[Rfam]
RNA sequence: UGCUACUUACUCGCCUGACGCCUGACGCCUCUUGAAGAAGGAUGCUAUAGGAUCUCCAUACCCUACUCCGACUCAAUACGUCCACGGCGUACAGAACGGUAACAUAUUUCUCCGAUAAUCUGAGCUUGUAUACACGGGGAAACCACCAACCCCUUGGGAGGAUGGGUCAUAUGGCUAAAUUGAGCGGG
Numbered sequence: 001u002g003c004u005a006c007u008u009a010c011u012c013g014c015c016u017g018a019c020g021c022c023u024g025a026c027g028c029c030u031c032u033u034g035a036a037g038a039a040g041g042a043u044g045c046u047a048u049a050g051g052a053u054c055u056c057c058a059u060a061c062c063c064u065a066c067u068c069c070g071a072c073u074c075a076a077u078a079c080g081u082c083c084a085c086g087g088c089g090u091a092c093a094g095a096a097c098g099g100u101a102a103c104a105u106a107u108u109u110c111u112c113c114g115a116u117a118a119u120c121u122g123a124g125c126u127u128g129u130a131u132a133c134a135c136g137g138g139g140a141a142a143c144c145a146c147c148a149a150c151c152c153c154u155u156g157g158g159a160g161g162a163u164g165g166g167u168c169a170u171a172u173g174g175c176u177a178a179a180u181u182g183a184g185c186g187g188g
Base pairs, nucleotide, nucleotide: 001096003094004093013062016058017057022051023050067188068187069186070185072184073183074182075181076180077179078090079089080088082099083098103173104172105171106170107169110166112165113164118163119162120161121160126149127148128147131142151158152157
RNA: drz-agam-2-2 ribozyme
Organism: Anopheles stephensi